[Rfam]
This 72-nucleotide sequence from Anguilla anguilla belongs to the Rfam family "mir-29 microRNA precursor family". Gene Ontology terms of the family: gene silencing by miRNA and RISC complex. The literature on the family includes a 2001 paper in Cell by Ambros, "microRNAs: tiny regulators with great potential". A search with the family's covariance model found it, with a score of 68 bits. Rfam describes the family as follows. This family represents the microRNA (miRNA) precursors mir-29.
RNA sequence: GGAAGCUGGUUUCAGGUGGUGUCUUAGAGUGUUGUAUGUUAUUAAUCUAGCACCAUUUGAAAUCAGUGUUCU
Numbered sequence: 001g002g003a004a005g006c007u008g009g010u011u012u013c014a015g016g017u018g019g020u021g022u023c024u025u026a027g028a029g030u031g032u033u034g035u036a037u038g039u040u041a042u043u044a045a046u047c048u049a050g051c052a053c054c055a056u057u058u059g060a061a062a063u064c065a066g067u068g069u070u071c072u
Base pairs, nucleotide, nucleotide: 001072002071003070004069005067006066007065008064009063010062011061012060013059014058016056017055018054019053020052021051025049026048027047028046